[Rfam]
RNA sequence: CCCUCGCUCAAUAAAUCGCUAUUCGAAGCUUACAAACAGAGACACCGCGAUUUAUCGCAGCGUCUCGAUUACUUUCUGGCUUUGGGGAAAGUCCCCGGACGUCUUCGUUUCGACGAAGCUUGCGGAAACGCGCCGCCAUAGAAGCACAGCGGUUGACCUCUUCGCCCAGGCCCUCACCCUGCGCCGGCCCUACCCUCCGCUACAUCUUCCUGUUCAGCGGCUUUGUCUCCCGGUCUUUGCUGCCCUCGGUCCUUUUGGAUGAAGAUAUGAGUCCGCUGUCGAGGCGUGGUGAGUUCCAGACGGACGGGUUGUCUGGCAGGUGGAUGGUUGGUAGACGCUUGGUGCUCGUGUGUGUGGCAUCGGGUCGCUGAGGAUUUUUUGUCGAGAUUGAUAGGCAUGCGAUUGCCCAGCGAAAGCUGGAUUUACUCAAUGGGGCUCAUUCUUGAUGCGAGG
Numbered sequence: 001c002c003c004u005c006g007c008u009c010a011a012u013a014a015a016u017c018g019c020u021a022u023u024c025g026a027a028g029c030u031u032a033c034a035a036a037c038a039g040a041g042a043c044a045c046c047g048c049g050a051u052u053u054a055u056c057g058c059a060g061c062g063u064c065u066c067g068a069u070u071a072c073u074u075u076c077u078g079g080c081u082u083u084g085g086g087g088a089a090a091g092u093c094c095c096c097g098g099a100c101g102u103c104u105u106c107g108u109u110u111c112g113a114c115g116a117a118g119c120u121u122g123c124g125g126a127a128a129c130g131c132g133c134c135g136c137c138a139u140a141g142a143a144g145c146a147c148a149g150c151g152g153u154u155g156a157c158c159u160c161u162u163c164g165c166c167c168a169g170g171c172c173c174u175c176a177c178c179c180u181g182c183g184c185c186g187g188c189c190c191u192a193c194c195c196u197c198c199g200c201u202a203c204a205u206c207u208u209c210c211u212g213u214u215c216a217g218c219g220g221c222u223u224u225g226u227c228u229c230c231c232g233g234u235c236u237u238u239g240c241u242g243c244c245c246u247c248g249g250u251c252c253u254u255u256u257g258g259a260u261g262a263a264g265a266u267a268u269g270a271g272u273c274c275g276c277u278g279u280c281g282a283g284g285c286g287u288g289g290u291g292a293g294u295u296c297c298a299g300a301c302g303g304a305c306g307g308g309u310u311g312u313c314u315g316g317c318a319g320g321u322g323g324a325u326g327g328u329u330g331g332u333a334g335a336c337g338c339u340u341g342g343u344g345c346u347c348g349u350g351u352g353u354g355u356g357g358c359a360u361c362g363g364g365u366c367g368c369u370g371a372g373g374a375u376u377u378u379u380u381g382u383c384g385a386g387a388u389u390g391a392u393a394g395g396c397a398u399g400c401g402a403u404u405g406c407c408c409a410g411c412g413a414a415a416g417c418u419g420g421a422u423u424u425a426c427u428c429a430a431u432g433g434g435g436c437u438c439a440u441u442c443u444u445g446a447u448g449c450g451a452g453g
Stems, first nucleotide, its partner, number of pairs: 002453006008446004014404006023085007039066005045060001090437002093435004121132004334376002338372006344365004405422001407420004
Shown here is a 453-nucleotide sequence from Fusarium irregulare, a member of the family "RNase MRP". For this family Rfam cites "Secondary structure probing of the human RNase MRP RNA reveals the potential for MRP RNA subsets" (Walker and Avis, Biochem Biophys Res Commun, 2005). Rfam's curators write: RNase MRP is an enzymatically active ribonucleoprotein with two distinct roles in eukaryotes. It scores 99 bits against the family's covariance model. NCBI's taxonomy places the organism under Eukaryota, Fungi, Ascomycota, Nectriaceae, Fusarium incarnatum-equiseti species complex.